[Rfam]
RNA sequence: GAAAUCCUGUCUGAAUAAGGUCUAGCCAACCAUCAGUAGCGAGUCUUGAGUUGUUAUCAGUAAUGGUGAGAGCUAAGCGUAGACAGCAAGGAAGUAGGGUUUAAAAGCUAUUGAGCCUCGAAAUUUUGUCUAUCAGAUGGCUGACGUCUUAAUUGGUGCGGAAAGCAACAUCACAUAGGUUGGUAUGGCAAGAACUGUGUGGCACUGCGGGGUCAAAGGGCA
Numbered sequence: 001g002a003a004a005u006c007c008u009g010u011c012u013g014a015a016u017a018a019g020g021u022c023u024a025g026c027c028a029a030c031c032a033u034c035a036g037u038a039g040c041g042a043g044u045c046u047u048g049a050g051u052u053g054u055u056a057u058c059a060g061u062a063a064u065g066g067u068g069a070g071a072g073c074u075a076a077g078c079g080u081a082g083a084c085a086g087c088a089a090g091g092a093a094g095u096a097g098g099g100u101u102u103a104a105a106a107g108c109u110a111u112u113g114a115g116c117c118u119c120g121a122a123a124u125u126u127u128g129u130c131u132a133u134c135a136g137a138u139g140g141c142u143g144a145c146g147u148c149u150u151a152a153u154u155g156g157u158g159c160g161g162a163a164a165g166c167a168a169c170a171u172c173a174c175a176u177a178g179g180u181u182g183g184u185a186u187g188g189c190a191a192g193a194a195c196u197g198u199g200u201g202g203c204a205c206u207g208c209g210g211g212g213u214c215a216a217a218g219g220g221c222a
Base pairs, nucleotide, nucleotide: 012035013034014033019031020030021029023191025189026188037089039087040086043084044083045082046081047079048078049074050073051072052071054069055068056067057066058065059064112216113214115213116212117211118210119209120208134207135206136205138204139203140166141165142164145160146159147158171202172201173200174199175198176197177196178195180193181192
RNA: Group II catalytic intron D1-D4-6
Organism: Clostridium sporogenes